[Rfam]
RNA sequence: ACCGCCCAUUAAAAACGUCACACAUGCACCGACACAUGUUCCUGGGUGCCUGCAAGUCAGGUUGGAGCAUGGGGUGUAUGGAGGCCCAAC
Numbered sequence: 001a002c003c004g005c006c007c008a009u010u011a012a013a014a015a016c017g018u019c020a021c022a023c024a025u026g027c028a029c030c031g032a033c034a035c036a037u038g039u040u041c042c043u044g045g046g047u048g049c050c051u052g053c054a055a056g057u058c059a060g061g062u063u064g065g066a067g068c069a070u071g072g073g074g075u076g077u078a079u080g081g082a083g084g085c086c087c088a089a090c
Base pairs, nucleotide, nucleotide: 023080024079025078026077027076028075029074030073035071036070037069038068039067040066041065042064048062049061050060051059052058
The family of this 90-nucleotide RNA sequence from Terasakiispira papahanaumokuakeensis is "t44 RNA". Lineage of the source: Bacteria > Pseudomonadati > Gammaproteobacteria > Oceanospirillales > Terasakiispira. It is annotated as a small RNA. The base pairs follow the family's consensus structure, which was predicted with LocARNA. Rfam describes the family as follows. This family consists of a number of bacterial RNA genes of between 135 and 170 bases in length. The t44 gene has been identified in several species of enteric bacteria but homologs have also been identified in Pseudomonas and Coxiella species. The t44 gene is found between the map and rpsB genes in all species in the full alignment apart from Shigella flexneri.